[Rfam]
RNA: sroC RNA
RNA sequence: ACUAAUAAAAAAUACGGGCGGAAGAAUCUGCCCUCUCGAUUGUGGUUCAGCACGGACAGACUAUAUGUCAGGUGGUCGUUCCCCACCUGGCCUGAAUACCGCAAAACGCUGUUCAACAAUCUUCGAGGGUAGCAGGUCGAACUGCUACCCUUUUUUUU
Numbered sequence: 001a002c003u004a005a006u007a008a009a010a011a012a013u014a015c016g017g018g019c020g021g022a023a024g025a026a027u028c029u030g031c032c033c034u035c036u037c038g039a040u041u042g043u044g045g046u047u048c049a050g051c052a053c054g055g056a057c058a059g060a061c062u063a064u065a066u067g068u069c070a071g072g073u074g075g076u077c078g079u080u081c082c083c084c085a086c087c088u089g090g091c092c093u094g095a096a097u098a099c100c101g102c103a104a105a106a107c108g109c110u111g112u113u114c115a116a117c118a119a120u121c122u123u124c125g126a127g128g129g130u131a132g133c134a135g136g137u138c139g140a141a142c143u144g145c146u147a148c149c150c151u152u153u154u155u156u157u158u
Stems, first nucleotide, its partner, number of pairs: 010158002016033004020028002034128005039120005045114001053101003057094003067091009